[Rfam]
RNA sequence: AAGGCGCCCAGUGAAGCCCCCAUGUCCUCGAGGGGAGUGGCAGGUGAGCCGCUCCCGUAGACUGCGCGGGGAG
Numbered sequence: 001a002a003g004g005c006g007c008c009c010a011g012u013g014a015a016g017c018c019c020c021c022a023u024g025u026c027c028u029c030g031a032g033g034g035g036a037g038u039g040g041c042a043g044g045u046g047a048g049c050c051g052c053u054c055c056c057g058u059a060g061a062c063u064g065c066g067c068g069g070g071g072a073g
Stems, first nucleotide, its partner, number of pairs: 018071003023066003028061002033056009
RNA: Sulfolobus sRNA133